[Rfam]
Nucleotides: 112
Stems, first nucleotide, its partner, number of pairs: 001020004007035007036095004040090008050064005067079004098112005
Number, partner (000 for none) and nucleotide at each position: 001020a002019g003018g004017u005000a006000a007035u008034g009033u010032c011031u012030c013029c014000u015000g016000c017004a018003c019002c020001u021000u022000u023000a024000u025000c026000a027000c028000c029013g030012g031011a032010g033009g034008c035007a036095c037094u038093c039092g040090a041089u042088u043087a044086u045085g046084c047083u048000g049000u050064g051063g052062g053061u054060c055000a056000g057000c058000c059000a060054g061053a062052c063051c064050u065000u066000a067079g068078a069077c070076g071000u072000u073000u074000g075000u076070c077069g078068u079067c080000a081000a082000g083047a084046g085045u086044g087043u088042a089041a090040u091000g092039u093038g094037a095036g096000g097000a098112a099111g100110g101109g102108u103000u104000c105000a106000a107000u108102g109101c110100c111099c112098u
A member of the RNA family "epsC RNA" from Paenibacillus anaericanus, 112 nucleotides long. The organism belongs to Paenibacillus, within Bacteria. It scores 106 bits against the family's covariance model. The base pairs follow the family's consensus structure, which is taken from published work. It is annotated as a cis-regulatory element.